[Rfam]
RNA sequence: GGGGUGGUGACAUGGAGAGCUGCCCAGGCUGUGAGAGAGAUAGAGUGUGGAAUGGCUCCUGCUCUGCUUGGUCAAAGCUAGCAUCUUUCUCGCUCACAGUCUGCACAGCUCUCUGUGUCUCUCUCCC
Numbered sequence: 001g002g003g004g005u006g007g008u009g010a011c012a013u014g015g016a017g018a019g020c021u022g023c024c025c026a027g028g029c030u031g032u033g034a035g036a037g038a039g040a041u042a043g044a045g046u047g048u049g050g051a052a053u054g055g056c057u058c059c060u061g062c063u064c065u066g067c068u069u070g071g072u073c074a075a076a077g078c079u080a081g082c083a084u085c086u087u088u089c090u091c092g093c094u095c096a097c098a099g100u101c102u103g104c105a106c107a108g109c110u111c112u113c114u115g116u117g118u119c120u121c122u123c124u125c126c127c
Stems, first nucleotide, its partner, number of pairs: 001127004006122002009119014025103011037091001

Notes: This 127-nucleotide RNA from Ceratodon purpureus belongs to the Rfam family "MIR533 microRNA precursor family". The match comes from Rfam's covariance-model search (96 bits). Taxonomically the source falls in Ceratodon (Eukaryota, Embryophyta, Bryopsida, Pseudoditrichales). The family has 5 seed sequences and 13 matches in Rfam 15.1.